A member of the RNA family "chrB-b RNA" from Ramlibacter albus, 55 nucleotides long. Pairs were carried over by alignment from the consensus structure, which is taken from published work.

RNA sequence: CGGGGCCCACGGCAGACGCCCCGCCGCCAAGAGGCUCACCGCCUCCAAGUUCUGC
Numbered sequence: 001c002g003g004g005g006c007c008c009a010c011g012g013c014a015g016a017c018g019c020c021c022c023g024c025c026g027c028c029a030a031g032a033g034g035c036u037c038a039c040c041g042c043c044u045c046c047a048a049g050u051u052c053u054g055c
Stems, first nucleotide, its partner, number of pairs: 001023006012055005031045005
Dot-bracket structure: ((((((.....[[[[[.)))))).......(((((.....))))).....]]]]]
Lineage of the source: Bacteria > Pseudomonadati > Pseudomonadota > Burkholderiales > Ramlibacter.